[Rfam]
RNA sequence: CUAUCCGAGGAGCGCUGCAGCCUGUCGGCCCGCAACGGGUUGAUUCACAGGUGAGGCUCGGACUGCCAACCGCGCUCACCCACU
Numbered sequence: 001c002u003a004u005c006c007g008a009g010g011a012g013c014g015c016u017g018c019a020g021c022c023u024g025u026c027g028g029c030c031c032g033c034a035a036c037g038g039g040u041u042g043a044u045u046c047a048c049a050g051g052u053g054a055g056g057c058u059c060g061g062a063c064u065g066c067c068a069a070c071c072g073c074g075c076u077c078a079c080c081c082a083c084u
Stems, first nucleotide, its partner, number of pairs: 004062005021051005

Rfam assigns this 84-nucleotide RNA from Limnohabitans sp. Jir61 to the family "SAH (S-adenosyl-L-homocysteine) riboswitch aptamer". NCBI's taxonomy places the organism under Bacteria, Pseudomonadati, Pseudomonadota, Comamonadaceae, Limnohabitans.